[Rfam]
RNA sequence: UUUAGUUGAUGAAGAUGUCAUUGGAAACCCAAGGGAAAAAGAUGAUGUCUGAUGUUGGUCUAAA
Numbered sequence: 001u002u003u004a005g006u007u008g009a010u011g012a013a014g015a016u017g018u019c020a021u022u023g024g025a026a027a028c029c030c031a032a033g034g035g036a037a038a039a040a041g042a043u044g045a046u047g048u049c050u051g052a053u054g055u056u057g058g059u060c061u062a063a064a
Base pairs, nucleotide, nucleotide: 001064002063003062004061005060014049015048016047017046018045019044020043021042022041028035029034
RNA: Selenocysteine insertion sequence 1
Organism: Hemibagrus wyckioides